[Rfam]
RNA sequence: UAUCGUUCCCAGGGGUGCCCGCGCCAAGGCGGGCUGAGAUGGUCGUGACAGCCGGCCGAACCCUUCGAACCUGACCCGGGUCGUGCCGGCGUAGGGAAGGAACCAGUGCCGCGC
Numbered sequence: 001u002a003u004c005g006u007u008c009c010c011a012g013g014g015g016u017g018c019c020c021g022c023g024c025c026a027a028g029g030c031g032g033g034c035u036g037a038g039a040u041g042g043u044c045g046u047g048a049c050a051g052c053c054g055g056c057c058g059a060a061c062c063c064u065u066c067g068a069a070c071c072u073g074a075c076c077c078g079g080g081u082c083g084u085g086c087c088g089g090c091g092u093a094g095g096g097a098a099g100g101a102a103c104c105a106g107u108g109c110c111g112c113g114c
Stems, first nucleotide, its partner, number of pairs: 006102004011064004016058001017034005041057005070095004076089004

Rfam assigns this 114-nucleotide RNA sequence from Pacificimonas flava to the family "TPP riboswitch aptamer (THI element)". Pairs were carried over by alignment from the consensus structure, which is taken from published work. A search with the family's covariance model found it, with a score of 75 bits.